[Rfam]
The record is a 114-nucleotide sequence from Paraglaciecola sp. T6c, which matches "Histidine operon leader" in Rfam. The family's RNA type in Rfam is cis-regulatory leader. The base pairs follow the family's consensus structure, which is taken from published work. A reference for the family is Kolter and Yanofsky (1982), "Attenuation in amino acid biosynthetic operons", Annu Rev Genet. Its family is annotated with histidine biosynthetic process in the Gene Ontology.
RNA sequence: AAAACAUCACCAUCAUAUAGCAUAACCUUUCAGGUUGGUGCUGGAAGGUCUAUUGAUUCCUUCCUGCGGCGUAACGAUUAACUAGCCCUCGGAAGGAAACUUCCGGGGGUUUUU
Numbered sequence: 001a002a003a004a005c006a007u008c009a010c011c012a013u014c015a016u017a018u019a020g021c022a023u024a025a026c027c028u029u030u031c032a033g034g035u036u037g038g039u040g041c042u043g044g045a046a047g048g049u050c051u052a053u054u055g056a057u058u059c060c061u062u063c064c065u066g067c068g069g070c071g072u073a074a075c076g077a078u079u080a081a082c083u084a085g086c087c088c089u090c091g092g093a094a095g096g097a098a099a100c101u102u103c104c105g106g107g108g109g110u111u112u113u114u
Base pairs, nucleotide, nucleotide: 008040009039010038012035013034014033020031041066043064044063045062046061047060048059084111085110086109087108088107089106090105091104092103093102094101095100